[Rfam]
RNA sequence: UGAUGUUACGGAUGCAAUGACCCUGAGUUUGAUAUUGGUCGCUUCUCCUGCAUUUUUUAUUUUUUUUUACAGGAUCGAGCCCAGGCGAGCAAGCAGCGAAACCGGCCGUAUUUUGG
Numbered sequence: 001u002g003a004u005g006u007u008a009c010g011g012a013u014g015c016a017a018u019g020a021c022c023c024u025g026a027g028u029u030u031g032a033u034a035u036u037g038g039u040c041g042c043u044u045c046u047c048c049u050g051c052a053u054u055u056u057u058u059a060u061u062u063u064u065u066u067u068u069a070c071a072g073g074a075u076c077g078a079g080c081c082c083a084g085g086c087g088a089g090c091a092a093g094c095a096g097c098g099a100a101a102c103c104g105g106c107c108g109u110a111u112u113u114u115g116g
Base pairs, nucleotide, nucleotide: 001116003114005112007110008109009108010107011106013091014090015089022085023084024083025082027080028079029078037103038102039099040098041097042096043095